The record is a 138-nucleotide RNA sequence from Sparus aurata, which matches "Small nucleolar RNA SNORA29" in Rfam.
NCBI's taxonomy places the organism under Eukaryota, Actinopterygii, Actinopteri, Teleostei, Sparus.
ACA29 is a member of the H/ACA class of snoRNA that guide the sites of modification of uridines to pseudouridines.
Rfam links the family to the GO terms nucleolus and RNA processing.
Rfam classes the family as an H/ACA-box small nucleolar RNA.
A search with the family's covariance model found it, with a score of 64 bits.
Pairs were carried over by alignment from the consensus structure, which was predicted with PFOLD.
RNA sequence: AGUCCCAUUUCAGUACCUUCCACUCCUAUCACUAUGAAUGGACGGCUAUGCUAAUGGGAUAGAAAAACACUGUCAUGGUCUGAGGGUGUGGCUAACAUACUGUGUACCUCACUAAAUAAUAUGACAGAACAUAAUAUC
Numbered sequence: 001a002g003u004c005c006c007a008u009u010u011c012a013g014u015a016c017c018u019u020c021c022a023c024u025c026c027u028a029u030c031a032c033u034a035u036g037a038a039u040g041g042a043c044g045g046c047u048a049u050g051c052u053a054a055u056g057g058g059a060u061a062g063a064a065a066a067a068c069a070c071u072g073u074c075a076u077g078g079u080c081u082g083a084g085g086g087u088g089u090g091g092c093u094a095a096c097a098u099a100c101u102g103u104g105u106a107c108c109u110c111a112c113u114a115a116a117u118a119a120u121a122u123g124a125c126a127g128a129a130c131a132u133a134a135u136a137u138c
Stems, first nucleotide, its partner, number of pairs: 004058004016045002019042001072125004090113002
Dot-bracket structure: ...((((........((.(......................).)).........)))).............((((..............((....................))........)))).............